[Rfam]
RNA sequence: CCACCCGGAUGCCGUGAGGCCUCUGUCCGCUCAACAGCCCUGGUGCACCUUCCCCGGUACCAGGUCCGCAGCGGGCGGACAGGGACCUGACGGCAUCCGCCAUAUUUC
Numbered sequence: 001c002c003a004c005c006c007g008g009a010u011g012c013c014g015u016g017a018g019g020c021c022u023c024u025g026u027c028c029g030c031u032c033a034a035c036a037g038c039c040c041u042g043g044u045g046c047a048c049c050u051u052c053c054c055c056g057g058u059a060c061c062a063g064g065u066c067c068g069c070a071g072c073g074g075g076c077g078g079a080c081a082g083g084g085a086c087c088u089g090a091c092g093g094c095a096u097c098c099g100c101c102a103u104a105u106u107u108c
Base pairs, nucleotide, nucleotide: 010095011094012093013092014091015090018087019086021084022083023082024081025080026079027078028077029076030075031074032073035068037066039064040063041062042061043060044059045058046057